[Rfam]
RNA sequence: CGAGAGAAUCGUGGUUAAGGAACUCGGCAAAAUGCCCCCGUAACUUCGGGAGAAGGGGGGCCAUCCACUUAUACCAGCUUGCCUGGAAAAGGGUGUGGUGGCCGCAGAGACUAGUGGGUAGCGACUGUUUACUAAAAACACAGGUCCGUGCCAAGUCGCAAGACGAUGUAUACGGACUGACGCCUGCCCGGUGCUGGAAGGUUAAGAGGACCGGUUAGCCGCAAGGCGAAGCUGAGAAUUUAAGCCCCAGUAAACGGCGGUGGUAACUAUAACCAUCCUAAGGUAGCGAAAUUCCUUGUCGGGUAAGUUCCGACCUGCACGAAUGGCGUAACGACUUCCCAACUGUCUCAACCGCGAACUCG
Numbered sequence: 001c002g003a004g005a006g007a008a009u010c011g012u013g014g015u016u017a018a019g020g021a022a023c024u025c026g027g028c029a030a031a032a033u034g035c036c037c038c039c040g041u042a043a044c045u046u047c048g049g050g051a052g053a054a055g056g057g058g059g060g061c062c063a064u065c066c067a068c069u070u071a072u073a074c075c076a077g078c079u080u081g082c083c084u085g086g087a088a089a090a091g092g093g094u095g096u097g098g099u100g101g102c103c104g105c106a107g108a109g110a111c112u113a114g115u116g117g118g119u120a121g122c123g124a125c126u127g128u129u130u131a132c133u134a135a136a137a138a139c140a141c142a143g144g145u146c147c148g149u150g151c152c153a154a155g156u157c158g159c160a161a162g163a164c165g166a167u168g169u170a171u172a173c174g175g176a177c178u179g180a181c182g183c184c185u186g187c188c189c190g191g192u193g194c195u196g197g198a199a200g201g202u203u204a205a206g207a208g209g210a211c212c213g214g215u216u217a218g219c220c221g222c223a224a225g226g227c228g229a230a231g232c233u234g235a236g237a238a239u240u241u242a243a244g245c246c247c248c249a250g251u252a253a254a255c256g257g258c259g260g261u262g263g264u265a266a267c268u269a270u271a272a273c274c275a276u277c278c279u280a281a282g283g284u285a286g287c288g289a290a291a292u293u294c295c296u297u298g299u300c301g302g303g304u305a306a307g308u309u310c311c312g313a314c315c316u317g318c319a320c321g322a323a324u325g326g327c328g329u330a331a332c333g334a335c336u337u338c339c340c341a342a343c344u345g346u347c348u349c350a351a352c353c354g355c356g357a358a359c360u361c362g
Stems, first nucleotide, its partner, number of pairs: 001362004009357008018348003035059005044049001060102006080095005103107001115341004120336002122333002126140003143178008151168001155164003181328004186258003191255002193251005200246003206240002212234004218227002259277006278282001288315001298314006

The record is a 362-nucleotide part of an RNA from Microbacterium lemovicicum, which matches "Bacterial large subunit ribosomal RNA" in Rfam. Lineage of the source: Bacteria > Bacillati > Actinomycetota > Micrococcales > Microbacterium. A search with the family's covariance model found it, with a score of 2816 bits. Pairs were carried over by alignment from the consensus structure, which is taken from published work.